[Rfam]
RNA sequence: GAAGCGUCAACCCCGCACAGCCACACGGUUGAUCAGACGGGGACCGCCGCUCCGCAAGGAGCGGCUGUC
Numbered sequence: 001g002a003a004g005c006g007u008c009a010a011c012c013c014c015g016c017a018c019a020g021c022c023a024c025a026c027g028g029u030u031g032a033u034c035a036g037a038c039g040g041g042g043a044c045c046g047c048c049g050c051u052c053c054g055c056a057a058g059g060a061g062c063g064g065c066u067g068u069c
Base pairs, nucleotide, nucleotide: 011042012041013040014039015038018031019030020029021028022027046065047064048063049062050061051060052059053058

Transposase-2 RNA: a 69-nucleotide RNA from Haloechinothrix alba.
Pairs were carried over by alignment from the consensus structure, which is taken from published work.
NCBI's taxonomy places the organism under Bacteria, Bacillati, Pseudonocardiales, Pseudonocardiaceae, Haloechinothrix.
Rfam classes the family as a small RNA.
The family has 151 seed sequences and 214 matches in Rfam 15.1.